[Rfam]
RNA: L2-Alphaproteobacteria ribosomal protein leader
RNA sequence: GGGCACCUACGGGGGCCUAUACCAAUGGCGGGCCAAGCCCGCCCCACAUAGGCAGGGACCACACACCCUGUCGUUUGCUAAACGGAAGACAGAAA
Numbered sequence: 001g002g003g004c005a006c007c008u009a010c011g012g013g014g015g016c017c018u019a020u021a022c023c024a025a026u027g028g029c030g031g032g033c034c035a036a037g038c039c040c041g042c043c044c045c046a047c048a049u050a051g052g053c054a055g056g057g058a059c060c061a062c063a064c065a066c067c068c069u070g071u072c073g074u075u076u077g078c079u080a081a082a083c084g085g086a087a088g089a090c091a092g093a094a095a
Stems, first nucleotide, its partner, number of pairs: 001018004006014003027072006
Dot-bracket structure: ((((.(((...)))))))........((((((..................................)))))).......................